Small nucleolar RNA SNORD47: a 77-nucleotide RNA. Rfam classes the family as a C/D-box small nucleolar RNA. The literature on the family includes a 2002 paper in Mol Cell Biol by Galardi et al., "Purified box C/D snoRNPs are able to reproduce site-specific 2'-O-methylation of target RNA in vitro".
RNA sequence: AACCAGUGAUGUGAUGAUUCUGCCAAAUGAUACAAAGUGAUAUCACCUUUAAACCGUUCCAUUUUAUUUCUGAGGUU
Numbered sequence: 001a002a003c004c005a006g007u008g009a010u011g012u013g014a015u016g017a018u019u020c021u022g023c024c025a026a027a028u029g030a031u032a033c034a035a036a037g038u039g040a041u042a043u044c045a046c047c048u049u050u051a052a053a054c055c056g057u058u059c060c061a062u063u064u065u066a067u068u069u070c071u072g073a074g075g076u077u
Stems, first nucleotide, its partner, number of pairs: 001077004